Description: A member of the RNA family "Staphylococcus sRNA 774" from Phocicoccus pinnipedialis, 103 nucleotides long. The literature on the family includes a 2016 paper in PLoS Genet by Mader et al., "Staphylococcus aureus Transcriptome Architecture: From Laboratory to Infection-Mimicking Conditions". From the family's description: Northern blot transcript confirmed in exponentially growing and stationary cells in three cultivation media. Trans-encoded. The base pairs follow the family's consensus structure, which was predicted with R-scape.
[Rfam]
RNA sequence: AAAUAAUCAAAAAGUACUUGAUAAUUUUGAAAUCUUUGUGUAAGAUAUUAUCUAGACGUUAAAAAAACGCUAACUAUUAUUAUCGCGGGAUGGAGCAGUUCGG
Numbered sequence: 001a002a003a004u005a006a007u008c009a010a011a012a013a014g015u016a017c018u019u020g021a022u023a024a025u026u027u028u029g030a031a032a033u034c035u036u037u038g039u040g041u042a043a044g045a046u047a048u049u050a051u052c053u054a055g056a057c058g059u060u061a062a063a064a065a066a067a068c069g070c071u072a073a074c075u076a077u078u079a080u081u082a083u084c085g086c087g088g089g090a091u092g093g094a095g096c097a098g099u100u101c102g103g
Base pairs, nucleotide, nucleotide: 004038005037006036008020009019010018022032058078060076